Record summary: The record is a 181-nucleotide sequence from Wenjunlia tyrosinilytica, which matches "c-di-AMP riboswitch aptamer (ydaO/yuaA leader)" in Rfam. From the family's description: This family represents a conserved RNA structure found upstream of the ydaO and yuaA genes in Bacillus subtilis and related genes in other bacteria. The ydaO/yuaA element is thought to act as a genetic 'off' switch for the ydaO and yuaA genes in its native state. It is believed that the element may be triggered during osmotic shock leading to activation of ydaO, a predicted amino acid transporter gene, and members of the yuaA-yubG operon which code for KtrA and KtrB K+ transporters.
[Rfam]
RNA sequence: CGUGCGCCAUCGCCUAAUCCCGAACACCCUGGUCAGGGUGUCAGGGAACCGGGGAACCACCUCCCUCCCAACGCGGAGGGAACUGGGGUGAAUCGGGUCGGCUGGGCAACCAGCAGACUCGUAGGGGACCUUCCUGCUCCGAACCCGUCAGCUAACCCGGUCGGCGAGAAGGAAGGAAAGG
Numbered sequence: 001c002g003u004g005c006g007c008c009a010u011c012g013c014c015u016a017a018u019c020c021c022g023a024a025c026a027c028c029c030u031g032g033u034c035a036g037g038g039u040g041u042c043a044g045g046g047a048a049c050c051g052g053g054g055a056a057c058c059a060c061c062u063c064c065c066u067c068c069c070a071a072c073g074c075g076g077a078g079g080g081a082a083c084u085g086g087g088g089u090g091a092a093u094c095g096g097g098u099c100g101g102c103u104g105g106g107c108a109a110c111c112a113g114c115a116g117a118c119u120c121g122u123a124g125g126g127g128a129c130c131u132u133c134c135u136g137c138u139c140c141g142a143a144c145c146c147g148u149c150a151g152c153u154a155a156c157c158c159g160g161u162c163g164g165c166g167a168g169a170a171g172g173a174a175g176g177a178a179a180g181g
Stems, first nucleotide, its partner, number of pairs: 011166004018047003048161006058085002086146003094121006124140004
A search with the family's covariance model found it, with a score of 80 bits.